[Rfam]
RNA sequence: UUCUUAUUGGAUGAUGACUAUCAUGUGUCAUGUUUUGAUUGAAUGUCGAAUUCAUGGAAGAUGAAAUGUAUUGUUGUUGUCAUUAGUCAAUCAGAACAUGAUGCACGUGACAGUUAUCACCC
Numbered sequence: 001u002u003c004u005u006a007u008u009g010g011a012u013g014a015u016g017a018c019u020a021u022c023a024u025g026u027g028u029c030a031u032g033u034u035u036u037g038a039u040u041g042a043a044u045g046u047c048g049a050a051u052u053c054a055u056g057g058a059a060g061a062u063g064a065a066a067u068g069u070a071u072u073g074u075u076g077u078u079g080u081c082a083u084u085a086g087u088c089a090a091u092c093a094g095a096a097c098a099u100g101a102u103g104c105a106c107g108u109g110a111c112a113g114u115u116a117u118c119a120c121c122c
Stems, first nucleotide, its partner, number of pairs: 021110003025106002029100003033096004038091003
The record is a 122-nucleotide RNA sequence from Glycine soja, which matches "MIR1520 microRNA precursor family" in Rfam. The family has 18 seed sequences and 1,934 matches in Rfam 15.1. Gene Ontology terms of the family: miRNA-mediated post-transcriptional gene silencing and RISC complex.